[Rfam]
RNA sequence: UCUCCACAGGGCUACACCUACUGCGAAGUAGGGUCGGAAAGCUCCGGGUCUUUACCAAUAAAGAUGGCUGAGUUGCAAAU
Number, nucleotide and partner (000 for none) at each position: 001u000002c000003u000004c000005c000006a000007c000008a000009g000010g000011g000012c037013u036014a000015c000016a000017c032018c031019u030020a029021c028022u027023g000024c000025g000026a000027a022028g021029u020030a019031g018032g017033g000034u000035c000036g013037g012038a000039a000040a074041g073042c072043u071044c000045c070046g069047g068048g065049u064050c063051u062052u061053u060054a059055c000056c000057a000058a000059u054060a053061a052062a051063g050064a049065u048066g000067g000068c047069u046070g045071a043072g042073u041074u040075g000076c000077a000078a000079a000080u000